[Rfam]
Nucleotides: 143
Base pairs, nucleotide, nucleotide: 003141004140005139006138007137008136009135010134016028017027018026032092033091034048035047036046037045043090044089051068052067053066072088073087074086075085076084094126095125096124
Number, partner (000 for none) and nucleotide at each position: 001000a002000a003141u004140g005139u006138g007137u008136u009135c010134c011000g012000g013000g014000g015000u016028c017027g018026g019000u020000g021000a022000g023000a024000a025000u026018c027017c028016g029000a030000a031000c032092c033091g034048g035047c036046g037045g038000u039000g040000a041000u042000a043090g044089u045037c046036c047035g048034c049000g050000a051068g052067c053066g054000u055000c056000g057000c058000a059000u060000c061000c062000g063000c064000g065000a066053u067052g068051u069000u070000g071000a072088a073087c074086c075085g076084g077000u078000g079000a080000a081000a082000c083000u084076c085075c086074g087073g088072u089044a090043c091033c092032g093000a094126c095125g096124g097000u098000g099000a100000u101000g102000g103000g104000c105000a106000a107000g108000u109000a110000g111000g112000u113000u114000u115000u116000g117000c118000u119000c120000u121000a122000g123000u124096c125095c126094g127000g128000a129000u130000g131000a132000g133000a134010g135009g136008a137007a138006c139005g140004c141003a142000a143000g
The family of this 143-nucleotide RNA from Leucobacter exalbidus is "FMN riboswitch aptamer (RFN element)". NCBI's taxonomy places the organism under Bacteria, Actinomycetes, Micrococcales, Microbacteriaceae, Leucobacter. It scores 84 bits against the family's covariance model. The base pairs follow the family's consensus structure, which is taken from published work.